[Rfam]
RNA sequence: UGAAGUGGGCUCAUGAUCGCCCCGACUUUCGCAGUCGGAGAGGAAAGUCCGAACUCCGCAGGGCAAGAUGGUUCGUAACACGAACACUGGGUGACCGGUGGAAAGUGCCACAGAAAAUAGACCGCCUGGUUCGCCAGGUAAGGGUGAAACGGCGAGGUAAGAGCUCACCGCUUUCACGGUGACGUGGAAGGCAGGGCAAACCCCAUCUGGAGCAAGACCAAAUAGAGAGAUGUUUGAGGGCGGCUCCGUCCGAGAUCUCCGGGUAGGUUGCAAGAGGCGUCGGGCAACCGACGUCCCAGUGAAAUGAUCAUGGCUCCCUUCGGGGAGAGACAGAAUUCGGCUUAUAGCCCACUUCGCACA
Numbered sequence: 001u002g003a004a005g006u007g008g009g010c011u012c013a014u015g016a017u018c019g020c021c022c023c024g025a026c027u028u029u030c031g032c033a034g035u036c037g038g039a040g041a042g043g044a045a046a047g048u049c050c051g052a053a054c055u056c057c058g059c060a061g062g063g064c065a066a067g068a069u070g071g072u073u074c075g076u077a078a079c080a081c082g083a084a085c086a087c088u089g090g091g092u093g094a095c096c097g098g099u100g101g102a103a104a105g106u107g108c109c110a111c112a113g114a115a116a117a118u119a120g121a122c123c124g125c126c127u128g129g130u131u132c133g134c135c136a137g138g139u140a141a142g143g144g145u146g147a148a149a150c151g152g153c154g155a156g157g158u159a160a161g162a163g164c165u166c167a168c169c170g171c172u173u174u175c176a177c178g179g180u181g182a183c184g185u186g187g188a189a190g191g192c193a194g195g196g197c198a199a200a201c202c203c204c205a206u207c208u209g210g211a212g213c214a215a216g217a218c219c220a221a222a223u224a225g226a227g228a229g230a231u232g233u234u235u236g237a238g239g240g241c242g243g244c245u246c247c248g249u250c251c252g253a254g255a256u257c258u259c260c261g262g263g264u265a266g267g268u269u270g271c272a273a274g275a276g277g278c279g280u281c282g283g284g285c286a287a288c289c290g291a292c293g294u295c296c297c298a299g300u301g302a303a304a305u306g307a308u309c310a311u312g313g314c315u316c317c318c319u320u321c322g323g324g325g326a327g328a329g330a331c332a333g334a335a336u337u338c339g340g341c342u343u344a345u346a347g348c349c350c351a352c353u354u355c356g357c358a359c360a
Stems, first nucleotide, its partner, number of pairs: 001356010012312007020040001022038006045343003049340005054212004061246004066208005071085005086099005100203002105201002107197003122143002124139006151169002154166003170192001171190008216269004227259005238251004276295008
The record is a 360-nucleotide sequence from Desulfotalea psychrophila, which matches "Bacterial RNase P class A" in Rfam. The base pairs follow the family's consensus structure, which is taken from published work. Rfam's curators write: Ribonuclease P (RNase P) is a ubiquitous endoribonuclease, found in archaea, bacteria and eukarya as well as chloroplasts and mitochondria. Its best characterised activity is the generation of mature 5'-ends of tRNAs by cleaving the 5'-leader elements of precursor-tRNAs. Cellular RNase Ps are ribonucleoproteins. RNA from bacterial RNase Ps retains its catalytic activity in the absence of the protein subunit, i.e. it is a ribozyme. Isolated eukaryotic and archaeal RNase P RNA has not been shown to retain its catalytic function, but is still essential for the catalytic activity of the holoenzyme. Although the archaeal and eukaryotic holoenzyme s have a much greater protein content than the bacterial ones, the RNA cores from all the three lineages are homologous -- helices corresponding to P1, P2, P3, P4, and P10/11 are common to all cellular RNase P RNAs. Yet, there is considerable sequence variation, particularly among the eukaryotic RNAs. Identified in Yersinia as Ysr151/RnpB. The sequence is in the family's curated seed alignment. Taxonomically the source falls in Desulfotalea psychrophila (Bacteria, Pseudomonadati, Thermodesulfobacteriota, Desulfocapsaceae).